The family of this 114-nucleotide RNA sequence from Sinomonas atrocyanea is "mraW RNA". The base pairs follow the family's consensus structure, which is taken from published work. Taxonomically the source falls in Sinomonas (Bacteria, Bacillati, Actinomycetes, Micrococcales).
Nucleotides: 114
Stems, first nucleotide, its partner, number of pairs: 010101004015096001018093002021090004027084004032079003038074001039072003043068008
Number, partner (000 for none) and nucleotide at each position: 001000u002000c003000c004000c005000a006000c007000u008000g009000g010101c011100u012099g013098g014000c015096c016000g017000a018093g019092a020000u021090c022089u023088c024087c025000a026000g027084c028083c029082g030081c031000c032079c033078c034077g035000c036000a037000a038074c039072g040071c041070u042000u043068c044067c045066u046065g047064g048063c049062u050061c051000a052000c053000c054000u055000u056000c057000c058000c059000c060000g061050g062049a063048g064047c065046c066045a067044g068043g069000c070041g071040g072039c073000c074038g075000a076000c077034c078033g079032g080000c081030g082029c083028g084027g085000a086000g087024g088023g089022g090021g091000a092019u093018c094000u095000g096015g097000a098013c099012c100011a101010g102000c103000c104000g105000g106000a107000c108000a109000c110000c111000a112000c113000g114000g